Repression of heat shock gene expression (ROSE) element: a 92-nucleotide sequence from Sphingomonas sp. TF3. Pairs were carried over by alignment from the consensus structure, which is taken from published work. The match comes from Rfam's covariance-model search (64 bits). About the family: This family represents a 5' UTR cis-regulatory element found in heat shock mRNAs and is known as the ROSE (repression of heat shock gene expression) element. The ROSE element is a negative regulator of heat shock gene expression. The secondary structure is thought to be regulated by temperature.

RNA sequence: CCGGGUGCCAUUGGGUCCGGCACAGCGGGAGCGUCGGCUCUUCCGGCGCUUCUCAUGCUCAGAUUGCUCAUAGGAGGAUUUGAAUAUGAGGA
Numbered sequence: 001c002c003g004g005g006u007g008c009c010a011u012u013g014g015g016u017c018c019g020g021c022a023c024a025g026c027g028g029g030a031g032c033g034u035c036g037g038c039u040c041u042u043c044c045g046g047c048g049c050u051u052c053u054c055a056u057g058c059u060c061a062g063a064u065u066g067c068u069c070a071u072a073g074g075a076g077g078a079u080u081u082g083a084a085u086a087u088g089a090g091g092a
Base pairs, nucleotide, nucleotide: 001020002019003018004017005016006015008014009013028051030050031049032048033047034046035045036044037043052090053089054088055087056086057085059083060082061081062080063079064078065077067076068075069074